The family of this 75-nucleotide sequence from Rehaibacterium terrae is "c-di-GMP-I riboswitch aptamer". A search with the family's covariance model found it, with a score of 42 bits.
RNA sequence: UCCGACAAAGGGCAAGGCCGCAACGGCCGCGCAAAGCCACGGGCCGGGAGCGAUCCCGACGGCCGGGCUGCCUGA
Numbered sequence: 001u002c003c004g005a006c007a008a009a010g011g012g013c014a015a016g017g018c019c020g021c022a023a024c025g026g027c028c029g030c031g032c033a034a035a036g037c038c039a040c041g042g043g044c045c046g047g048g049a050g051c052g053a054u055c056c057c058g059a060c061g062g063c064c065g066g067g068c069u070g071c072c073u074g075a
Stems, first nucleotide, its partner, number of pairs: 012032002017027004035069004040065003043060001045058005